Small nucleolar RNA U105B: an 80-nucleotide sequence from Rattus norvegicus.
Rfam's curators put it in the seed alignment.
[Rfam]
RNA sequence: CCCCAUGCAUCUGAUGAGAGCUUUGCUGCUGAGAUUGUGUGAUUGCUCAGACUCAAAGUAAACGCCCUGAUGCAUGCGCA
Numbered sequence: 001c002c003c004c005a006u007g008c009a010u011c012u013g014a015u016g017a018g019a020g021c022u023u024u025g026c027u028g029c030u031g032a033g034a035u036u037g038u039g040u041g042a043u044u045g046c047u048c049a050g051a052c053u054c055a056a057a058g059u060a061a062a063c064g065c066c067c068u069g070a071u072g073c074a075u076g077c078g079c080a
Base pairs, nucleotide, nucleotide: 005075006074007073008072009071011020012019029050030049031048032047033046

By type it is a C/D-box small nucleolar RNA. For this family Rfam cites "snoSeeker: an advanced computational package for screening of guide and orphan snoRNA genes in the human genome" (Yang et al., Nucleic Acids Res, 2006). The family has 13 seed sequences and 132 matches in Rfam 15.1.